A member of the RNA family "c-di-GMP-I riboswitch aptamer" from Paenibacillus sambharensis, 95 nucleotides long. The source organism's lineage runs through Bacteria, Bacillati, Bacilli, Paenibacillaceae and Paenibacillus. A search with the family's covariance model found it, with a score of 67 bits.
RNA sequence: GAAUGACAAAGGCAAACCCGCUGAAAGGCGGAGACGCAAAGCUGACAGGCCUACAGACAACAACUCUAAUUGUCCAGGGCGGCUGAGCUGCCAAU
Number, nucleotide and partner (000 for none) at each position: 001g000002a000003a000004u000005g000006a000007c000008a000009a000010a000011g000012g037013c036014a000015a000016a000017c000018c031019c030020g029021c028022u027023g000024a000025a000026a000027g022028g021029c020030g019031g018032a000033g000034a000035c000036g013037c012038a000039a000040a089041g088042c087043u086044g000045a000046c085047a084048g083049g080050c079051c078052u000053a000054c000055a000056g074057a073058c072059a071060a000061c000062a000063a000064c000065u000066c000067u000068a000069a000070u000071u059072g058073u057074c056075c000076a000077g000078g051079g050080c049081g000082g000083c048084u047085g046086a043087g042088c041089u040090g000091c000092c000093a000094a000095u000